[Rfam]
RNA sequence: GGUAUAAUGUGAAUAGAUAACAGAGUUGCGGAGGAUCAAAGGAUCCUCCUUCCCCUAGCCGACUUGCCCUCCUAGUCGCUAGGGUUUUUUU
Numbered sequence: 001g002g003u004a005u006a007a008u009g010u011g012a013a014u015a016g017a018u019a020a021c022a023g024a025g026u027u028g029c030g031g032a033g034g035a036u037c038a039a040a041g042g043a044u045c046c047u048c049c050u051u052c053c054c055c056u057a058g059c060c061g062a063c064u065u066g067c068c069c070u071c072c073u074a075g076u077c078g079c080u081a082g083g084g085u086u087u088u089u090u091u
Base pairs, nucleotide, nucleotide: 031048032047033046034045035044036043037042053084054083055082056081057080058079060078061077062076063075064074
Source information: Shown here is a 91-nucleotide sequence from Citrifermentans bemidjiense, a member of the family "atoC RNA". It is annotated as a cis-regulatory element. Lineage of the source: Bacteria > Geobacterales > Geobacteraceae > Citrifermentans > Citrifermentans bemidjiense.